RNA: ES036 (CssrF) sRNA
RNA sequence: AAAAUUAUGCAAAUUUAAUAGAUUGCAGAAGACUGUAGGCCU
Numbered sequence: 001a002a003a004a005u006u007a008u009g010c011a012a013a014u015u016u017a018a019u020a021g022a023u024u025g026c027a028g029a030a031g032a033c034u035g036u037a038g039g040c041c042u
Stems, first nucleotide, its partner, number of pairs: 005030002008027005